Record summary:
Shown here is a 112-nucleotide sequence from Mesobacillus zeae, a member of the family "PyrR binding site". By type it is a cis-regulatory element. The match comes from Rfam's covariance-model search (62 bits). NCBI's taxonomy places the organism under Bacteria, Bacillati, Caryophanales, Bacillaceae, Mesobacillus.
[Rfam]
RNA sequence: AGGCCCUUUUAAAUACAGUCCAGAGAGGCUGGAAAGGGGAAUCUGCUUUAGCCCAAACCGGGCUGGCAAUUUCUCCUGACCUCUUUGUGAAAAGCAAAGAGGUUUUUUUAUA
Numbered sequence: 001a002g003g004c005c006c007u008u009u010u011a012a013a014u015a016c017a018g019u020c021c022a023g024a025g026a027g028g029c030u031g032g033a034a035a036g037g038g039g040a041a042u043c044u045g046c047u048u049u050a051g052c053c054c055a056a057a058c059c060g061g062g063c064u065g066g067c068a069a070u071u072u073c074u075c076c077u078g079a080c081c082u083c084u085u086u087g088u089g090a091a092a093a094g095c096a097a098a099g100a101g102g103u104u105u106u107u108u109u110a111u112a
Stems, first nucleotide, its partner, number of pairs: 004038006016031005040072002044068003049065006078104011